[Rfam]
RNA sequence: UGUUGAUGUGAUGAUAAACCUGGACAGAAACUUCGGUGUUGACCAAAAUUUCAGACUACAAUUAUCUGAUCAACU
Number, nucleotide and partner (000 for none) at each position: 001u000002g074003u073004u072005g071006a070007u000008g000009u000010g000011a000012u000013g000014a000015u000016a000017a000018a000019c000020c000021u000022g000023g000024a000025c000026a000027g000028a000029a000030a000031c000032u000033u000034c000035g000036g000037u000038g000039u000040u000041g000042a000043c000044c000045a000046a000047a000048a000049u000050u000051u000052c000053a000054g000055a000056c000057u000058a000059c000060a000061a000062u000063u000064a000065u000066c000067u000068g000069a000070u006071c005072a004073a003074c002075u000
The record is a 75-nucleotide sequence from Zea mays, which matches "Small nucleolar RNA Z155" in Rfam. Gene Ontology terms of the family: RNA processing and nucleolus. It scores 73 bits against the family's covariance model.